[Rfam]
RNA sequence: CGGCCGGGACGACCCGGUGCCGUUGACGGGACCACUCCGGGACGACCCGG
Numbered sequence: 001c002g003g004c005c006g007g008g009a010c011g012a013c014c015c016g017g018u019g020c021c022g023u024u025g026a027c028g029g030g031a032c033c034a035c036u037c038c039g040g041g042a043c044g045a046c047c048c049g050g
Base pairs, nucleotide, nucleotide: 001022002021003020004019005016006015007014008013037050038049039048040047041046
The family of this 50-nucleotide RNA from Kaistia soli is "Guanidine-II riboswitch aptamer (mini-ykkC)". Rfam links the family to the GO term regulation of gene expression. The family's consensus secondary structure is taken from published work. Rfam 15.1 lists 1,589 matches to the family in 1,229 species.